[Rfam]
RNA sequence: GCCAAAUGAUGCUAAACAGAUCACAUAGCACACAGUGCAAAGAUGACUUUUUAUCUAUCACCCAAUGCUGAUGGCU
Numbered sequence: 001g002c003c004a005a006a007u008g009a010u011g012c013u014a015a016a017c018a019g020a021u022c023a024c025a026u027a028g029c030a031c032a033c034a035g036u037g038c039a040a041a042g043a044u045g046a047c048u049u050u051u052u053a054u055c056u057a058u059c060a061c062c063c064a065a066u067g068c069u070g071a072u073g074g075c076u
Base pairs, nucleotide, nucleotide: 001075002074003073004072028038029037030036031035
Shown here is a 76-nucleotide sequence from Anolis carolinensis, a member of the family "Small nucleolar RNA SNORD83".
The family's RNA type in Rfam is C/D-box small nucleolar RNA.
Rfam links the family to the GO terms RNA processing and nucleolus.
The match comes from Rfam's covariance-model search (48 bits).
The literature on the family includes a 2000 paper in Nucleic Acids Res by Jady and Kiss, "Characterisation of the U83 and U84 small nucleolar RNAs: two novel 2'-O-ribose methylation guide RNAs that lack complementarities to ribosomal RNAs".